[Rfam]
This 177-nucleotide RNA from Caloramator sp. E03 belongs to the Rfam family "6S / SsrS RNA". The match comes from Rfam's covariance-model search (76 bits). By type it is a non-coding RNA gene. E. coli 6S RNA was the first non coding RNA to be sequenced, but its function was unknown until recently. Pairs were carried over by alignment from the consensus structure, which is taken from published work. Taxonomically the source falls in Caloramator (Bacteria, Bacillati, Clostridia, Clostridiaceae).
RNA sequence: UAAAUCCUGAGAUGUUCGUCAGACCUGUAAUUUCAACCGACAGAUUUAAUAAGGGAGUCCGCGUCGAGGUAAUGAUGCAAUGUCUGCAAUGGUAGAACUGCAGAGGUACUUCGUAGGGCACCCACCUGCAGAGAGUGCGGGUAUGAAAUUAACAGGCAGCGGCAUAUUGGGAGUUUU
Numbered sequence: 001u002a003a004a005u006c007c008u009g010a011g012a013u014g015u016u017c018g019u020c021a022g023a024c025c026u027g028u029a030a031u032u033u034c035a036a037c038c039g040a041c042a043g044a045u046u047u048a049a050u051a052a053g054g055g056a057g058u059c060c061g062c063g064u065c066g067a068g069g070u071a072a073u074g075a076u077g078c079a080a081u082g083u084c085u086g087c088a089a090u091g092g093u094a095g096a097a098c099u100g101c102a103g104a105g106g107u108a109c110u111u112c113g114u115a116g117g118g119c120a121c122c123c124a125c126c127u128g129c130a131g132a133g134a135g136u137g138c139g140g141g142u143a144u145g146a147a148a149u150u151a152a153c154a155g156g157c158a159g160c161g162g163c164a165u166a167u168u169g170g171g172a173g174u175u176u177u
Base pairs, nucleotide, nucleotide: 002175003174005172006171007170008169009168010167012165013164014163015162017161018160019159031148032147033146034145035144036142037141038140053123054122055121057119058118059117060116064113066112067111068110069109070108071107078100079099083096084095085094086093087092
Dot-bracket structure: .((.((((((.((((.(((...........((((((((..............(((.((((...(.((((((......((...(((((....)))))..))......)))))))..)))).)))................))).)))))..........))))))).)))))).))..